RNA: Small nucleolar RNA SNORA17
Organism: Rattus norvegicus
RNA sequence: UCUGCCGGAGAGACAUUGCAGCUGUGGCUGCUGUGUCACAUGCGUGUCAGUAGGUGGCAGAGAGGAGAGGCUGAGUCUAUGCUCGGUGUUCCAACCAAAGAACAUCUAAAUGAUUAACAGCCUAAAGGU
Numbered sequence: 001u002c003u004g005c006c007g008g009a010g011a012g013a014c015a016u017u018g019c020a021g022c023u024g025u026g027g028c029u030g031c032u033g034u035g036u037c038a039c040a041u042g043c044g045u046g047u048c049a050g051u052a053g054g055u056g057g058c059a060g061a062g063a064g065g066a067g068a069g070g071c072u073g074a075g076u077c078u079a080u081g082c083u084c085g086g087u088g089u090u091c092c093a094a095c096c097a098a099a100g101a102a103c104a105u106c107u108a109a110a111u112g113a114u115u116a117a118c119a120g121c122c123u124a125a126a127g128g129u
Stems, first nucleotide, its partner, number of pairs: 002060005009051001012048003018045002023040006068123006080112002083109001085107002087104005